[Rfam]
RNA sequence: AUUGGAGAAGCCGAAAACCAUAUAGAGUAGGCA
Numbered sequence: 001a002u003u004g005g006a007g008a009a010g011c012c013g014a015a016a017a018c019c020a021u022a023u024a025g026a027g028u029a030g031g032c033a
Base pairs, nucleotide, nucleotide: 003020004019005018010032011031012030
RNA: DUF805b RNA